[Rfam]
RNA sequence: UCGACACGACAUUGAUGGCGACGUCAGUAGCACUGGCGUGUGGAGGUAGACCGAUAAAAAUCGGCCCGGCGUAAGCUGCAAACAGGUCUGAGACCUGGGGAACCUCGCAAGAACUCAACAUUUCGCCGCCCUGAUGCAUAAAUGUUUGUCG
Number, nucleotide and partner (000 for none) at each position: 001u000002c151003g150004a149005c148006a000007c000008g146009a145010c144011a143012u142013u141014g000015a000016u000017g000018g000019c042020g041021a039022c038023g037024u036025c035026a034027g000028u000029a000030g000031c000032a000033c000034u026035g025036g024037c023038g022039u021040g000041u020042g019043g106044a105045g104046g103047u000048a000049g000050a000051c064052c063053g062054a061055u060056a000057a000058a000059a000060a055061u054062c053063g052064g051065c000066c000067c000068g000069g000070c000071g000072u000073a000074a000075g000076c000077u000078g000079c000080a000081a000082a000083c098084a096085g095086g094087u093088c092089u000090g000091a000092g088093a087094c086095c085096u084097g000098g083099g000100g000101a000102a000103c046104c045105u044106c043107g000108c000109a000110a000111g000112a000113a000114c000115u000116c000117a000118a000119c000120a000121u000122u000123u000124c000125g000126c000127c000128g000129c000130c000131c000132u000133g000134a000135u000136g000137c000138a000139u000140a000141a013142a012143u011144g010145u009146u008147u000148g005149u004150c003151g002
RNA: EFASI RNA
Organism: Yersinia enterocolitica